RNA sequence: CCUUUGGAGAGUUAUAUCAAACUGAAGUAGCGUUUAGCAAAACAAGACUCGAUGAACAAGGAA
Number, nucleotide and partner (000 for none) at each position: 001c061002c060003u059004u058005u000006g000007g000008a000009g050010a049011g048012u047013u046014a000015u000016a000017u000018c000019a000020a000021a000022c000023u044024g043025a000026a000027g000028u000029a000030g038031c037032g000033u000034u000035u000036a000037g031038c030039a000040a000041a000042a000043c024044a023045a000046g013047a012048c011049u010050c009051g000052a000053u000054g000055a000056a000057c000058a004059a003060g002061g001062a000063a000
RNA: RAGATH-18 RNA